[Rfam]
RNA sequence: CGAGCCGGCCGGGCGGCCGCGUCGAGGUCCACGAGAUGGGCCUCGCCGAGGAAGGUCCGGGCUCCGCAGGGCGGGGUGGUGGGUAACGCCCACCCGGGGUGACCCGCGGGACAGUGCCACAGAAAACAGACCGCCCCCCGGCUCUGCCCUCGGGCAGGUCAGGAGGUAAGGGUGAAACGGUGGUGUAAGAGACCACCAGCGCCCGGGGUGACCCGGGCGGCUCGGUAAACCCCACCCGGAGCAAGGUCAAGAGGGGAGCCGAUGGCUCCCUGCGCAGGCGAUCGAGGGUGGCCCGCCCGAUGCCUGCGGGUGGACCGCUGGAGGCUGUCGGCAACGGCAGCCCGAGAGGGAUGGCCGCCGCUCGGAACGCCGCAAGGCGCCCGAGCACAGAACCCGGCCUACAGGCCGGCUCGUCCG
Numbered sequence: 001c002g003a004g005c006c007g008g009c010c011g012g013g014c015g016g017c018c019g020c021g022u023c024g025a026g027g028u029c030c031a032c033g034a035g036a037u038g039g040g041c042c043u044c045g046c047c048g049a050g051g052a053a054g055g056u057c058c059g060g061g062c063u064c065c066g067c068a069g070g071g072c073g074g075g076g077u078g079g080u081g082g083g084u085a086a087c088g089c090c091c092a093c094c095c096g097g098g099g100u101g102a103c104c105c106g107c108g109g110g111a112c113a114g115u116g117c118c119a120c121a122g123a124a125a126a127c128a129g130a131c132c133g134c135c136c137c138c139c140g141g142c143u144c145u146g147c148c149c150u151c152g153g154g155c156a157g158g159u160c161a162g163g164a165g166g167u168a169a170g171g172g173u174g175a176a177a178c179g180g181u182g183g184u185g186u187a188a189g190a191g192a193c194c195a196c197c198a199g200c201g202c203c204c205g206g207g208g209u210g211a212c213c214c215g216g217g218c219g220g221c222u223c224g225g226u227a228a229a230c231c232c233c234a235c236c237c238g239g240a241g242c243a244a245g246g247u248c249a250a251g252a253g254g255g256g257a258g259c260c261g262a263u264g265g266c267u268c269c270c271u272g273c274g275c276a277g278g279c280g281a282u283c284g285a286g287g288g289u290g291g292c293c294c295g296c297c298c299g300a301u302g303c304c305u306g307c308g309g310g311u312g313g314a315c316c317g318c319u320g321g322a323g324g325c326u327g328u329c330g331g332c333a334a335c336g337g338c339a340g341c342c343c344g345a346g347a348g349g350g351a352u353g354g355c356c357g358c359c360g361c362u363c364g365g366a367a368c369g370c371c372g373c374a375a376g377g378c379g380c381c382c383g384a385g386c387a388c389a390g391a392a393c394c395c396g397g398c399c400u401a402c403a404g405g406c407c408g409g410c411u412c413g414u415c416c417g
Stems, first nucleotide, its partner, number of pairs: 001413010011402001012359007020048002023045008053400003057397005062241004069294004074237005079093005094108001095106004109232002114230002116226003131171002133167003137163002140160004179197006199221001200219008245316004255307001257305002260302001286298004323342008
Source information
Bacterial RNase P class A: a 417-nucleotide RNA from a Streptosporangiales bacterium. The family's RNA type in Rfam is ribozyme. The source organism's lineage runs through Bacteria, Bacillati, Actinomycetota, Actinomycetes and Streptosporangiales. From the family's description: Ribonuclease P (RNase P) is a ubiquitous endoribonuclease, found in archaea, bacteria and eukarya as well as chloroplasts and mitochondria.